The record is a 107-nucleotide sequence from Phtheirospermum japonicum, which matches "Small nucleolar RNA snoR100" in Rfam. On this family, see Marker et al., Curr Biol 2002: "Experimental RNomics: identification of 140 candidates for small non-messenger RNAs in the plant Arabidopsis thaliana". Rfam links the family to the GO terms nucleolus and RNA processing.

[Rfam]
RNA sequence: AUAUGAAGGAAGCAUGGUAAUGUGCACAGGGAUCGAACAUCUAAGGUUGGCAUGUCUACUCCCUCUGAUUCUUUUUUCUUAUUUGGGUCUUAUUUGAUUUCAAGAUU
Dot-bracket structure: ...........((((......))))...................((((.....(((.......................................))).....))))

It is annotated as an H/ACA-box small nucleolar RNA.
A search with the family's covariance model found it, with a score of 54 bits.